[Rfam]
RNA sequence: CUGUAAGGGGUAUGAUGUAUUACUACAAGGCUCUCAAGAUGUUGGCAUAUCUUGACUCUGCAUCAGAGAUGGAUAUUAGAG
Numbered sequence: 001c002u003g004u005a006a007g008g009g010g011u012a013u014g015a016u017g018u019a020u021u022a023c024u025a026c027a028a029g030g031c032u033c034u035c036a037a038g039a040u041g042u043u044g045g046c047a048u049a050u051c052u053u054g055a056c057u058c059u060g061c062a063u064c065a066g067a068g069a070u071g072g073a074u075a076u077u078a079g080a081g
Base pairs, nucleotide, nucleotide: 001081002080004078005077006076
The family of this 81-nucleotide RNA sequence from Kingdonia uniflora is "Small nucleolar RNA J33". The base pairs follow the family's consensus structure. By type it is a C/D-box small nucleolar RNA. The family has 5 seed sequences and 831 matches in Rfam 15.1.